[Rfam]
Ribosomal protein L10 leader: a 151-nucleotide sequence from Allolucifera butyrica. About the family: This family is a putative r-protein leader autoregulatory structure found in B. subtilis and other low-GC Gram-positive bacteria. It is located in the 5' untranslated regions of mRNAs encoding ribosomal proteins L10 and L12 (rplJ-rplL). The family's RNA type in Rfam is cis-regulatory leader. Gene Ontology term of the family: regulation of gene expression. On this family, see Iben and Draper, Biochemistry 2008: "Specific interactions of the L10(L12)4 ribosomal protein complex with mRNA, rRNA, and L11".
RNA sequence: UUAAAGAAUUAGUUUAGGCUGUAGACAGCAGGCACAUAAUCGUGUUUAAUGGAUAAGAUUCCACCUGCCGAGGCCGGGGAUUCGCGGUUCAUAGUUAUGCUAUGAGCGGCCUCCGGUAAAUACUGCCGUGAGGCCGUUUUUAUUUUCCUUC
Numbered sequence: 001u002u003a004a005a006g007a008a009u010u011a012g013u014u015u016a017g018g019c020u021g022u023a024g025a026c027a028g029c030a031g032g033c034a035c036a037u038a039a040u041c042g043u044g045u046u047u048a049a050u051g052g053a054u055a056a057g058a059u060u061c062c063a064c065c066u067g068c069c070g071a072g073g074c075c076g077g078g079g080a081u082u083c084g085c086g087g088u089u090c091a092u093a094g095u096u097a098u099g100c101u102a103u104g105a106g107c108g109g110c111c112u113c114c115g116g117u118a119a120a121u122a123c124u125g126c127c128g129u130g131a132g133g134c135c136g137u138u139u140u141u142a143u144u145u146u147c148c149u150u151c
Stems, first nucleotide, its partner, number of pairs: 028068005034045003107136007116127001